RNA sequence: AUUGGCUACCGGGAUAUGACACCGAAAACUUUCCCAGGGAUGUUUGUCGGAGGGCUGUGCGCGAUUGCUAGCGUUUUAGCCAUUGCCCUUCCUGUUCCUGUUAUUGUCAGCAAC
Number, nucleotide and partner (000 for none) at each position: 001a000002u113003u000004g111005g000006c000007u000008a107009c106010c000011g104012g000013g102014a101015u100016a099017u000018g097019a096020c000021a095022c094023c000024g000025a000026a000027a000028a000029c000030u000031u000032u000033c000034c000035c000036a000037g077038g076039g075040a074041u000042g000043u000044u000045u000046g000047u000048c000049g000050g062051a000052g000053g000054g000055c000056u000057g000058u000059g000060c000061g000062c050063g000064a000065u000066u000067g000068c000069u000070a000071g000072c000073g000074u040075u039076u038077u037078a000079g000080c000081c000082a000083u000084u000085g000086c000087c000088c000089u000090u000091c000092c000093u000094g022095u021096u019097c018098c000099u016100g015101u014102u013103a000104u011105u000106g009107u008108c000109a000110g000111c004112a000113a002114c000
RNA: Potassium channel RNA editing signal